[Rfam]
RNA sequence: AACGACCGGCUGGAUACCCGCGUGUCAGCGCAAGGUUCCGGCCCACAAGUGGAGGCUCCGUUCUCCCACCUGACCGCUCCCCGGAGCGGCGGGUCACCGGUCAGGCGGCCGAAGUCCCCGAGGCUUCGGGUCGCCCGAUGUGCGCCCCGCGAUCACCGCGGAGGUGCUCCGGUAGUACAUGGAGCCCCUCAGUGAUCGGUCGGGGCAUUUUUU
Numbered sequence: 001a002a003c004g005a006c007c008g009g010c011u012g013g014a015u016a017c018c019c020g021c022g023u024g025u026c027a028g029c030g031c032a033a034g035g036u037u038c039c040g041g042c043c044c045a046c047a048a049g050u051g052g053a054g055g056c057u058c059c060g061u062u063c064u065c066c067c068a069c070c071u072g073a074c075c076g077c078u079c080c081c082c083g084g085a086g087c088g089g090c091g092g093g094u095c096a097c098c099g100g101u102c103a104g105g106c107g108g109c110c111g112a113a114g115u116c117c118c119c120g121a122g123g124c125u126u127c128g129g130g131u132c133g134c135c136c137g138a139u140g141u142g143c144g145c146c147c148c149g150c151g152a153u154c155a156c157c158g159c160g161g162a163g164g165u166g167c168u169c170c171g172g173u174a175g176u177a178c179a180u181g182g183a184g185c186c187c188c189u190c191a192g193u194g195a196u197c198g199g200u201c202g203g204g205g206c207a208u209u210u211u212u213u
Base pairs, nucleotide, nucleotide: 004102005101006100007099008098009097012039013038040095041094042093043092044091046072047071049069050068051067052066053064054063074089075088076087077086078085079084104135105134106133107132108131110128111127112126113125114124115123144206145205146204147203148202149201150198151197152196157194158193159192161190162189163188164187166185167184168183169182170181
Annotation: A member of the RNA family "Streptomyces RNA 1601", 213 nucleotides long. By type it is a small RNA. The literature on the family includes a 2011 paper in RNA Biol by Vockenhuber et al., "Deep sequencing-based identification of small non-coding RNAs in Streptomyces coelicolor". Rfam describes the family as follows. Identified by deep sequencing of transcriptome at the end of exponential growth phase. The pairing is the family consensus, mapped onto this sequence.